[Rfam]
RNA sequence: AUAGUCUCAUCGAAACCAGUACUCUGCUUCCGACGCACGAUACCUCUAUGGCACGCAGGGAGCGAGUCCGGACGCCUCACCCCCGUCGAGGCGGCCGGAGCAGUUCAAGCGGACAUCCAUGCGGCUUUCAGCCGGCCCCGAGUGGAUGUCCGCCGAUUUUUUU
Dot-bracket structure: ...((.((...)).))........(((((((..((..(.((......)))...))..)))))))..(((((..(((((.........)))))..)))))....(....((((((((((((.(((((.......))))..).))))))))))))..).......

Description:
The record is a 163-nucleotide sequence from Burkholderia pseudomallei, which matches "Burkholderia sRNA 35" in Rfam. The family's consensus secondary structure was predicted with RNAfold. The family's RNA type in Rfam is small RNA. Identified by RNA-seq, RACE and Northern blot. Strongly expressed in biofilm.